[Rfam]
U5 spliceosomal RNA: a 114-nucleotide RNA from Oryza meridionalis.
It scores 91 bits against the family's covariance model.
The literature on the family includes a 1996 paper in J Biol Chem by Hinz et al., "Domain analysis of human U5 RNA. Cap trimethylation, protein binding, and spliceosome assembly".

RNA sequence: AGCUGCGUGGUGAGCACAUAGCGAACUAUUCUUUCGCCUUUUACUAAAGAAUACCGUGUGCGCGCCACAAAUAGCAGCAUACUCUUAUUUUUGAAGGGUGUUAAAAAUACCCUA
Numbered sequence: 001a002g003c004u005g006c007g008u009g010g011u012g013a014g015c016a017c018a019u020a021g022c023g024a025a026c027u028a029u030u031c032u033u034u035c036g037c038c039u040u041u042u043a044c045u046a047a048a049g050a051a052u053a054c055c056g057u058g059u060g061c062g063c064g065c066c067a068c069a070a071a072u073a074g075c076a077g078c079a080u081a082c083u084c085u086u087a088u089u090u091u092u093g094a095a096g097g098g099u100g101u102u103a104a105a106a107a108u109a110c111c112c113u114a
Base pairs, nucleotide, nucleotide: 003077004076005075006074008067009066010065011064012063014061015060016059017058018057027053028052029051030050031049032048033047034046095113096112097111098110099109100108